[Rfam]
RNA sequence: UUAUCAUCACGUCAAGGAAAGUAGCAAUACUUGCCAUCUUUUGAAAGGAGGGACUCCUAAAAAAACCCCUCAUAAUCUUUUUUAAGACCUCAAAUCAGGUGGGACUACCCGCUGAACUUAAGCAUAUCAAUAAGCGGAGGAAAAGAAACUAACAAGGAUUCCCCCAGUAACGGCGAGUGAAGAGGGAAAAGCCCAAAUUUGUAAUCUGGCUCUUUCAGAGUCCGAGUUGUAAUUUUGAGAACUGUUUUCAGUGCUGGACCAUAUAUAAGUCUGUUGAAAAGCAGCACCAUUGAGGGUGAUAAUCCCGUUUAUGAUAUGGACUCCCAGUGCAAUAUGAUACAGUCUCUAAGAGUUGAGUUGUUUGGGAAUGCAGCUCAAAGUGGGUGGUAAAUUCCAUCUAAGGCUAAAUAUAGGUGAGAGACCGAUAGCAAACAAGUACCGUGAGGGAAAGAUGAAAAGAACUUUGGAAAGAGAGUUAACAGUACGUGAAAUUGUUAAAAGGGAAA
Numbered sequence: 001u002u003a004u005c006a007u008c009a010c011g012u013c014a015a016g017g018a019a020a021g022u023a024g025c026a027a028u029a030c031u032u033g034c035c036a037u038c039u040u041u042u043g044a045a046a047g048g049a050g051g052g053a054c055u056c057c058u059a060a061a062a063a064a065a066c067c068c069c070u071c072a073u074a075a076u077c078u079u080u081u082u083u084a085a086g087a088c089c090u091c092a093a094a095u096c097a098g099g100u101g102g103g104a105c106u107a108c109c110c111g112c113u114g115a116a117c118u119u120a121a122g123c124a125u126a127u128c129a130a131u132a133a134g135c136g137g138a139g140g141a142a143a144a145g146a147a148a149c150u151a152a153c154a155a156g157g158a159u160u161c162c163c164c165c166a167g168u169a170a171c172g173g174c175g176a177g178u179g180a181a182g183a184g185g186g187a188a189a190a191g192c193c194c195a196a197a198u199u200u201g202u203a204a205u206c207u208g209g210c211u212c213u214u215u216c217a218g219a220g221u222c223c224g225a226g227u228u229g230u231a232a233u234u235u236u237g238a239g240a241a242c243u244g245u246u247u248u249c250a251g252u253g254c255u256g257g258a259c260c261a262u263a264u265a266u267a268a269g270u271c272u273g274u275u276g277a278a279a280a281g282c283a284g285c286a287c288c289a290u291u292g293a294g295g296g297u298g299a300u301a302a303u304c305c306c307g308u309u310u311a312u313g314a315u316a317u318g319g320a321c322u323c324c325c326a327g328u329g330c331a332a333u334a335u336g337a338u339a340c341a342g343u344c345u346c347u348a349a350g351a352g353u354u355g356a357g358u359u360g361u362u363u364g365g366g367a368a369u370g371c372a373g374c375u376c377a378a379a380g381u382g383g384g385u386g387g388u389a390a391a392u393u394c395c396a397u398c399u400a401a402g403g404c405u406a407a408a409u410a411u412a413g414g415u416g417a418g419a420g421a422c423c424g425a426u427a428g429c430a431a432a433c434a435a436g437u438a439c440c441g442u443g444a445g446g447g448a449a450a451g452a453u454g455a456a457a458a459g460a461a462c463u464u465u466g467g468a469a470a471g472a473g474a475g476u477u478a479a480c481a482g483u484a485c486g487u488g489a490a491a492u493u494g495u496u497a498a499a500a501g502g503g504a505a506a
Base pairs, nucleotide, nucleotide: 063070087100088099089098090097108139109137110136111135112134113133119126120125149156150155160187161186162185163184170178171177190405191404192403193402198232199231210220211219212218213217242342243341244340245339263312264311265310269285271284272283273282274281288292294306295305296304355376356375357374358373359372360371361370383399384398387395439446440445